Rfam assigns this 233-nucleotide sequence from Clostridium argentinense to the family "T-box leader".
RNA sequence: UAGAAUGCGUUGAAGAAGGAAAGUAGUAUAAAUUUAGGUUACAGAGAGAAAGCGGUGGUGGAAAGCUUUUACUGAUAAUUUAUUUGAAGUGCCCUUUGGAGCAGAAAUCUGAAAUUUUAGUAUGAUUCUCCAGGUUCGCCUGUUAUAGCGAUAGGGUAUUAUUUGUACCUGAAUGAGUGGGAUAAUUAUAUCCAAUUAGGGUGGAACCACGGAGCGCAUGCUUCGUCUCUAGA
Numbered sequence: 001u002a003g004a005a006u007g008c009g010u011u012g013a014a015g016a017a018g019g020a021a022a023g024u025a026g027u028a029u030a031a032a033u034u035u036a037g038g039u040u041a042c043a044g045a046g047a048g049a050a051a052g053c054g055g056u057g058g059u060g061g062a063a064a065g066c067u068u069u070u071a072c073u074g075a076u077a078a079u080u081u082a083u084u085u086g087a088a089g090u091g092c093c094c095u096u097u098g099g100a101g102c103a104g105a106a107a108u109c110u111g112a113a114a115u116u117u118u119a120g121u122a123u124g125a126u127u128c129u130c131c132a133g134g135u136u137c138g139c140c141u142g143u144u145a146u147a148g149c150g151a152u153a154g155g156g157u158a159u160u161a162u163u164u165g166u167a168c169c170u171g172a173a174u175g176a177g178u179g180g181g182a183u184a185a186u187u188a189u190a191u192c193c194a195a196u197u198a199g200g201g202u203g204g205a206a207c208c209a210c211g212g213a214g215c216g217c218a219u220g221c222u223u224c225g226u227c228u229c230u231a232g233a
Stems, first nucleotide, its partner, number of pairs: 007102002015097004026085001028083004037073003048070006104129001106127004131142003180193005198230004209226007
It scores 123 bits against the family's covariance model.